Glycine riboswitch aptamer: a 76-nucleotide RNA sequence from Pelagimonas phthalicica. From the family's description: This family represents the bacterial glycine riboswitch. Its family is annotated with glycine biosynthetic process in the Gene Ontology.
[Rfam]
RNA sequence: CACACUCUGGAGAGUGGCGCAGAAAUGUGCCCGCCGAAGGGAUAGCGAUCUCAGGCGACAGGACAGAGGGGGCAUG
Numbered sequence: 001c002a003c004a005c006u007c008u009g010g011a012g013a014g015u016g017g018c019g020c021a022g023a024a025a026u027g028u029g030c031c032c033g034c035c036g037a038a039g040g041g042a043u044a045g046c047g048a049u050c051u052c053a054g055g056c057g058a059c060a061g062g063a064c065a066g067a068g069g070g071g072g073c074a075u076g
Base pairs, nucleotide, nucleotide: 003070005068006067007066008065009064016031017030018029019028033056034055035054036052037051040050041049